[Rfam]
RNA sequence: AAAAUCCAAGGUGAUGGAGCUCACCGAAAACCGCCUUUUAGGCUAAUAGCUCCUACGUAUCG
Numbered sequence: 001a002a003a004a005u006c007c008a009a010g011g012u013g014a015u016g017g018a019g020c021u022c023a024c025c026g027a028a029a030a031c032c033g034c035c036u037u038u039u040a041g042g043c044u045a046a047u048a049g050c051u052c053c054u055a056c057g058u059a060u061c062g
Stems, first nucleotide, its partner, number of pairs: 010025004016053006033043003
Annotation: A member of the RNA family "Fluoride riboswitch aptamer (crcB RNA motif)" from Thermovenabulum gondwanense, 62 nucleotides long. The source organism's lineage runs through Bacteria, Bacillati, Bacillota, Clostridia and Thermovenabulum.